Shown here is a 150-nucleotide RNA from Sporosarcina sp. JAI121, a member of the family "Ribosomal protein L10 leader". It is annotated as a cis-regulatory leader. Its family is annotated with regulation of gene expression in the Gene Ontology. About the family: This family is a putative r-protein leader autoregulatory structure found in B. subtilis and other low-GC Gram-positive bacteria. The match comes from Rfam's covariance-model search (75 bits).
[Rfam]
RNA sequence: UGAAUAUAAUCAUUUGUACCGUAGACAGCAGGAGCGGCAUGCCGCUUAAAAAUUCCUGCCGAGGACAAGACGCUCUUUUUCUAUUAAAAAGAUGACGACUUUUCAGCCCUCAGUCUGCUUACGUAGAUUGAGGGCUUUUCAUACUGGUAU
Numbered sequence: 001u002g003a004a005u006a007u008a009a010u011c012a013u014u015u016g017u018a019c020c021g022u023a024g025a026c027a028g029c030a031g032g033a034g035c036g037g038c039a040u041g042c043c044g045c046u047u048a049a050a051a052a053u054u055c056c057u058g059c060c061g062a063g064g065a066c067a068a069g070a071c072g073c074u075c076u077u078u079u080u081c082u083a084u085u086a087a088a089a090a091g092a093u094g095a096c097g098a099c100u101u102u103u104c105a106g107c108c109c110u111c112a113g114u115c116u117g118c119u120u121a122c123g124u125a126g127a128u129u130g131a132g133g134g135c136u137u138u139u140c141a142u143a144c145u146g147g148u149a150u
Stems, first nucleotide, its partner, number of pairs: 028059006034045003106135013

The source organism's lineage runs through Bacteria, Bacillota, Bacilli, Caryophanales and Sporosarcina.